[Rfam]
Shown here is a 170-nucleotide RNA from Lachnospiraceae bacterium 6_1_63FAA, a member of the family "Group II catalytic intron D1-D4-3".

RNA sequence: AUUAACGUGAGGGGAAUCUGAAGGAAGGUGGAGGCAAAUCUCUGGUCUGACGAACAGAAAUCACAUCAGGCUAUAGUUAAGGAUAAGGCUGCCUAACAAGCUGAAGUCCAAUAACUACUCGGAAUUAACUGUAGUAAAUGUGGCAGAUAGAUGGAGAGAAAGUGGCGUGU
Numbered sequence: 001a002u003u004a005a006c007g008u009g010a011g012g013g014g015a016a017u018c019u020g021a022a023g024g025a026a027g028g029u030g031g032a033g034g035c036a037a038a039u040c041u042c043u044g045g046u047c048u049g050a051c052g053a054a055c056a057g058a059a060a061u062c063a064c065a066u067c068a069g070g071c072u073a074u075a076g077u078u079a080a081g082g083a084u085a086a087g088g089c090u091g092c093c094u095a096a097c098a099a100g101c102u103g104a105a106g107u108c109c110a111a112u113a114a115c116u117a118c119u120c121g122g123a124a125u126u127a128a129c130u131g132u133a134g135u136a137a138a139u140g141u142g143g144c145a146g147a148u149a150g151a152u153g154g155a156g157a158g159a160a161a162g163u164g165g166c167g168u169g170u
Stems, first nucleotide, its partner, number of pairs: 002015002006011001027170001031166001034163002039157006045148005061143005070135003074131007081109004087102004
Taxonomically the source falls in Lachnospiraceae (Bacteria, Bacillota, Clostridia, Lachnospirales).
For this family Rfam cites "The ins and outs of group II introns" (Bonen and Vogel, Trends Genet, 2001).
Its family is annotated with Group II intron splicing in the Gene Ontology.